The record is a 60-nucleotide sequence from Scleromatobacter humisilvae, which matches "COG3860 RNA" in Rfam.
Rfam classes the family as a cis-regulatory element.
NCBI's taxonomy places the organism under Bacteria, Pseudomonadota, Betaproteobacteria, Burkholderiales, Scleromatobacter.

RNA sequence: CGGUCGGCAGUUCACCCAGGCGUUGCCGCGCUGGCAUCCCCAGCGUCGCUAAACCUGCCG
Number, nucleotide and partner (000 for none) at each position: 001c000002g016003g015004u014005c000006g000007g000008c000009a000010g000011u000012u000013c000014a004015c003016c002017c000018a000019g000020g000021c000022g000023u000024u000025g000026c000027c000028g000029c045030g044031c043032u042033g041034g040035c000036a000037u000038c000039c000040c034041c033042a032043g031044c030045g029046u000047c000048g000049c000050u000051a000052a000053a000054c000055c000056u000057g000058c000059c000060g000